[Rfam]
RNA sequence: UAGCAGUGAUGACGUCACACUUCAUGGUCCGUGUUUCUGAACACCAUGAUUUUAGUGGAAGUUCUGAGUUA
Numbered sequence: 001u002a003g004c005a006g007u008g009a010u011g012a013c014g015u016c017a018c019a020c021u022u023c024a025u026g027g028u029c030c031g032u033g034u035u036u037c038u039g040a041a042c043a044c045c046a047u048g049a050u051u052u053u054a055g056u057g058g059a060a061g062u063u064c065u066g067a068g069u070u071a
Base pairs, nucleotide, nucleotide: 001071002070003069004068
RNA: Small nucleolar RNA SNORD18